[Rfam]
Nucleotides: 080
Stems, first nucleotide, its partner, number of pairs: 002079004
Number, partner (000 for none) and nucleotide at each position: 001000u002079a003078g004077c005076c006000u007000g008000a009000a010000g011000u012000g013000a014000u015000g016000a017000g018000c019000u020000u021000g022000g023000u024000u025000c026000a027000u028000g029000u030000c031000u032000c033000u034000u035000c036000u037000c038000u039000g040000a041000g042000a043000u044000u045000g046000a047000u048000g049000c050000u051000g052000g053000a054000g055000a056000c057000a058000c059000u060000c061000c062000a063000g064000a065000g066000a067000c068000u069000c070000u071000g072000a073000u074000c075000a076005g077004g078003c079002u080000c